[Rfam]
RNA: Selenocysteine insertion sequence 4
RNA sequence: GGGACCUGUACUCGUUGCGGUGCAACGAUGGUUAAAGG
Numbered sequence: 001g002g003g004a005c006c007u008g009u010a011c012u013c014g015u016u017g018c019g020g021u022g023c024a025a026c027g028a029u030g031g032u033u034a035a036a037g038g
Base pairs, nucleotide, nucleotide: 005031006030013027014026015025016024017023018022